[Rfam]
RNA sequence: AAUAGUUUUAUCUUCAUAUUACGCUCAUUGCCAUGUGGACUUCUCCUAAUUACCUCGGUUAGUUUCGCCGGGGUUUUU
Numbered sequence: 001a002a003u004a005g006u007u008u009u010a011u012c013u014u015c016a017u018a019u020u021a022c023g024c025u026c027a028u029u030g031c032c033a034u035g036u037g038g039a040c041u042u043c044u045c046c047u048a049a050u051u052a053c054c055u056c057g058g059u060u061a062g063u064u065u066c067g068c069c070g071g072g073g074u075u076u077u078u
Stems, first nucleotide, its partner, number of pairs: 052074008

Photosynthesis regulatory RNA1: a 78-nucleotide sequence from Mojavia pulchra. It scores 54 bits against the family's covariance model. From the family's description: Formerly known as Syr1 discovered in Synechocystis sp PCC 6803, is a regulatory factor controlling photosynthetic functions. On this family, see Georg et al., Plant Cell 2014: "The small regulatory RNA SyR1/PsrR1 controls photosynthetic functions in cyanobacteria".